[Rfam]
RNA sequence: AUGUGUCGACGCCAAACCCGUUGCGAGGCGGGGAGGGCAAGCCGAGGGUCUUGAAAUCUCAAGGCGGCCUGGUUAGCGCA
Numbered sequence: 001a002u003g004u005g006u007c008g009a010c011g012c013c014a015a016a017c018c019c020g021u022u023g024c025g026a027g028g029c030g031g032g033g034a035g036g037g038c039a040a041g042c043c044g045a046g047g048g049u050c051u052u053g054a055a056a057u058c059u060c061a062a063g064g065c066g067g068c069c070u071g072g073u074u075a076g077c078g079c080a
Base pairs, nucleotide, nucleotide: 012037013036017032018031019030020029021028022027040074041073042072043071045070046069047068048065049064050063051062052061053060054059
Background
Shown here is an 80-nucleotide RNA sequence from Methylomonas sp. LL1, a member of the family "c-di-GMP-I riboswitch aptamer". Gene Ontology term of the family: cyclic-di-GMP binding. The source organism's lineage runs through Bacteria, Pseudomonadati, Pseudomonadota, Gammaproteobacteria and Methylomonas.